This 111-nucleotide sequence from Mesorhizobium sp. Root157 belongs to the Rfam family "Alphaproteobacterial ar14". About the family: Smr14C2 was renamed NfeR1 (Nodule Formation Efficiency RNA) highly expressed in salt stress and during the symbiotic interaction on legume roots. The pairing is the family consensus, mapped onto this sequence. By type it is a small RNA. On this family, see del Val et al., RNA Biol 2012: "A survey of sRNA families in alpha-proteobacteria".

RNA sequence: CGGUUUCGUCGGUGCCGUCCUCCCCGGCAAUGACGAUAUGGUCGAUCCUCUCCUCCCUGGAUCGGCCAACAACACGACACCCGCCGGAUCCUCCCCCGGCGGGUGUUGUCG
Numbered sequence: 001c002g003g004u005u006u007c008g009u010c011g012g013u014g015c016c017g018u019c020c021u022c023c024c025c026g027g028c029a030a031u032g033a034c035g036a037u038a039u040g041g042u043c044g045a046u047c048c049u050c051u052c053c054u055c056c057c058u059g060g061a062u063c064g065g066c067c068a069a070c071a072a073c074a075c076g077a078c079a080c081c082c083g084c085c086g087g088a089u090c091c092u093c094c095c096c097c098g099g100c101g102g103g104u105g106u107u108g109u110c111g
Base pairs, nucleotide, nucleotide: 007035008034009033011031013029014028015027016026017025039068040067041066042065043064044063045062046061047060048059077106078105079104080103081102082101083100084099085098086097087096